RNA sequence: CUAAACUUUUAUUAAUCACUCACACAUAUCGGCACAUCUUCCGGGGUGCUCGGCAAUCUUUCGCGAGGUUGUACGGGUCGGUAAGGUGGGAUAUGUGGACGCCUAAC
Numbered sequence: 001c002u003a004a005a006c007u008u009u010u011a012u013u014a015a016u017c018a019c020u021c022a023c024a025c026a027u028a029u030c031g032g033c034a035c036a037u038c039u040u041c042c043g044g045g046g047u048g049c050u051c052g053g054c055a056a057u058c059u060u061u062c063g064c065g066a067g068g069u070u071g072u073a074c075g076g077g078u079c080g081g082u083a084a085g086g087u088g089g090g091a092u093a094u095g096u097g098g099a100c101g102c103c104u105a106a107c
Stems, first nucleotide, its partner, number of pairs: 023097008035088005041081003048078005
The family of this 107-nucleotide RNA from Photobacterium aphoticum is "t44 RNA".
Rfam describes the family as follows. This family consists of a number of bacterial RNA genes of between 135 and 170 bases in length. The t44 gene has been identified in several species of enteric bacteria but homologs have also been identified in Pseudomonas and Coxiella species. The t44 gene is found between the map and rpsB genes in all species in the full alignment apart from Shigella flexneri. The function of this RNA is unknown.
It is annotated as a small RNA.
On this family, see Tjaden et al., Nucleic Acids Res 2002: "Transcriptome analysis of Escherichia coli using high-density oligonucleotide probe arrays".
Lineage of the source: Bacteria > Pseudomonadati > Vibrionales > Vibrionaceae > Photobacterium.